[Rfam]
RNA: mir-172 microRNA precursor family
RNA sequence: UUGUUGGCUGCUGUGGCAUCAUCAAGAUUCACAUCUGUUGAUGGACGGUGGUGAUUCACUCUCCACAAAGUUCUCUAUGAAAAUGAGAAUCUUGAUGAUGCUGCAUCGGCAAUCAA
Dot-bracket structure: .........(.(((((((((((((((((((.((..................................................)).))))))))))))))))))).).........